[Rfam]
RNA sequence: UGACGGGGGCCCGCACAAGCGGUGGAUUAUGUGGUUUAAUUCGAUGAUACGCGAGGAACCUUACCAAGACUUAAAUGGGAAAUGACAGGUUUAGAAAUAGACCCUUCUUCGGACAUUUUCCAAGGUGCUGCAUGGUUGUCGUCAGCUCGUGCCGUGAGGUGUUAGGUUAAGUCCUGCAACGAGCGCAACCCCUGUCACUAGUUGCUAACAUUCAGUUGAGGACUCUAGUGAGACUGCCUACGCAAGUAGAGAGGAAGGUGGGGAUGACGUCAAAUCAUCACGGCCCUUACGUCUUGGGCCACACACGUAAUACAAUGGCCGGUACAGAGGGCAGCUACCUAGCGAUAGGAUGCAAAUCUCGAAAGCCGGUCUCAGUUCGGAUUGGAGUCUGCAACUCGACUCUAUGAAGCUGGAAUCGCUAGUAAUCGCGCAUCAGCCAUGGCGCGGUGAAUACGUUCCCGGGCCUUGUACACACCGCCCGUCAAGCCAUGGAAGUCUGGGGUACCUGAAGUCGGUGACCGUAAAAGGAGCUGCCUAGGGUAAAACAGGUAACUAGGGCUAAGUCGUAACAAGGUAGCCGUACCGGAAGGUGCGGCUGGA
Dot-bracket structure: (((((.(((((((.((..((((((.((((((((((....((((........))))........(((((((.....(((.(((((...((((((....))))))..((....))))))).))).((.((((..((((((.((...(((((((((....)))..((((......))))..)))))).....((((.(((((((...((..((......))))....)))))))..((.(((((....)))).).)).....))))....)).).)))...))))))))....)))))))...)).)))))))).)...(((((((.....(((..((...(((....)))...))....)))....)))))))......(....(((((((........)))))))....).....))))).....(((((((..........)))))))......))...)))))))))).))..(.(..((...((((.(((..(((((...((((....(.((((..((......)).)))).)...))))...)))))..))).))))....))...)..).((((((((((....))))))))))..
RNA: Bacterial small subunit ribosomal RNA, nucleotides 907 to 1506
Organism: Kaistella treverensis